[Rfam]
RNA: Caulobacter sRNA CrfA
RNA sequence: CCGUCGGCGGUCGAUUGAGUGAGAAAUCGACCGUCGGCGGUCGAUUGAGUGAGAAAUCGACCGUCGGCGGUCGAUUGAGUGAGAAAUCGACCGUCGACGGUCGAUUGAGUAAGAAAUCGACCGUCGACGGUCGAUUGA
Numbered sequence: 001c002c003g004u005c006g007g008c009g010g011u012c013g014a015u016u017g018a019g020u021g022a023g024a025a026a027u028c029g030a031c032c033g034u035c036g037g038c039g040g041u042c043g044a045u046u047g048a049g050u051g052a053g054a055a056a057u058c059g060a061c062c063g064u065c066g067g068c069g070g071u072c073g074a075u076u077g078a079g080u081g082a083g084a085a086a087u088c089g090a091c092c093g094u095c096g097a098c099g100g101u102c103g104a105u106u107g108a109g110u111a112a113g114a115a116a117u118c119g120a121c122c123g124u125c126g127a128c129g130g131u132c133g134a135u136u137g138a
Base pairs, nucleotide, nucleotide: 001039003038004037005036006035007034008033009032011030012029013028014027016025040061041060042059043058044057045056046055068137069136071082072081073080089132090131091130092129093128094127095126096125097124098123099122100121101120102119103118104117105116106115